[Rfam]
RNA: Streptococcus sRNA SpF59 (ldcC RNA)
RNA sequence: UGACCGUUCUCUGCAGAAGCUAUAGAGGACCAAGGCCAUACGGACAGCCGGGUCAAAAGCCGA
Numbered sequence: 001u002g003a004c005c006g007u008u009c010u011c012u013g014c015a016g017a018a019g020c021u022a023u024a025g026a027g028g029a030c031c032a033a034g035g036c037c038a039u040a041c042g043g044a045c046a047g048c049c050g051g052g053u054c055a056a057a058a059g060c061c062g063a
Stems, first nucleotide, its partner, number of pairs: 001055005006030008